[Rfam]
RNA sequence: CCCUUAUCUUUUAAAAGUUUCAAGUUGGUCCCUUAUCUUUAUUAUAGGUUUCAAGUUGGUCCCUUCCGUCAAUUUUUUAACUAUUUCCGUUAAAUUUGGACACGUGUCAAACUAAUUUGGACACGUGGCACACUUGGACAUAUGACACAUGUCCAAAUUUAACGGUAACAAUAAAAAAAUUGACGGAAGGGACCAACUUGAAACCUAAAAUAAAGAUAAGGGACUAACUUGAAACUUUUAAAAGAUAAGAGA
Numbered sequence: 001c002c003c004u005u006a007u008c009u010u011u012u013a014a015a016a017g018u019u020u021c022a023a024g025u026u027g028g029u030c031c032c033u034u035a036u037c038u039u040u041a042u043u044a045u046a047g048g049u050u051u052c053a054a055g056u057u058g059g060u061c062c063c064u065u066c067c068g069u070c071a072a073u074u075u076u077u078u079a080a081c082u083a084u085u086u087c088c089g090u091u092a093a094a095u096u097u098g099g100a101c102a103c104g105u106g107u108c109a110a111a112c113u114a115a116u117u118u119g120g121a122c123a124c125g126u127g128g129c130a131c132a133c134u135u136g137g138a139c140a141u142a143u144g145a146c147a148c149a150u151g152u153c154c155a156a157a158u159u160u161a162a163c164g165g166u167a168a169c170a171a172u173a174a175a176a177a178a179a180u181u182g183a184c185g186g187a188a189g190g191g192a193c194c195a196a197c198u199u200g201a202a203a204c205c206u207a208a209a210a211u212a213a214a215g216a217u218a219a220g221g222g223a224c225u226a227a228c229u230u231g232a233a234a235c236u237u238u239u240a241a242a243a244g245a246u247a248a249g250a251g252a
Stems, first nucleotide, its partner, number of pairs: 003249006023229003027225003031221013045207003